[Rfam]
RNA sequence: AGCUUUGAGCAGUGGCAGUAUCGUAGCUGAUGAGGUUUAUCUGAAGCAUGAUUAUUGCUAAUUGAAAACUUUUCCUAAUACCCUGCCAUGACGACUUGAAAUACAGUCGCCAUUGGCAAUUUUUGGCAGUCUCUAUGAGG
Numbered sequence: 001a002g003c004u005u006u007g008a009g010c011a012g013u014g015g016c017a018g019u020a021u022c023g024u025a026g027c028u029g030a031u032g033a034g035g036u037u038u039a040u041c042u043g044a045a046g047c048a049u050g051a052u053u054a055u056u057g058c059u060a061a062u063u064g065a066a067a068a069c070u071u072u073u074c075c076u077a078a079u080a081c082c083c084u085g086c087c088a089u090g091a092c093g094a095c096u097u098g099a100a101a102u103a104c105a106g107u108c109g110c111c112a113u114u115g116g117c118a119a120u121u122u123u124u125g126g127c128a129g130u131c132u133c134u135a136u137g138a139g140g
Stems, first nucleotide, its partner, number of pairs: 020052005026047003034042002085117003088113003092109005130140004

U4 spliceosomal RNA: a 140-nucleotide RNA from Cebus imitator. Its Rfam clan is "U4 clan". It scores 111 bits against the family's covariance model. The literature on the family includes a 2018 paper in Cell Res by Zhan et al., "Structures of the human pre-catalytic spliceosome and its precursor spliceosome". Pairs were carried over by alignment from the consensus structure, which is taken from published work.